mir-548 microRNA precursor family: an 84-nucleotide RNA from Macaca mulatta.
Lineage of the source: Eukaryota > Eumetazoa > Sarcopterygii > Cercopithecidae > Macaca.
A search with the family's covariance model found it, with a score of 90 bits.
RNA sequence: UAUUAGGUUGGUGCAAAAGUAAUCGCAGUUUUUGCCCUUUUUUGGGGGGGCAAAAACUGCAAUUACUUUUGCAUCAACCUAAUA
Dot-bracket structure: (((((((((((((((((((((((.((((((((((((((((....)))))))))))))))).)))))))))))))))))))))))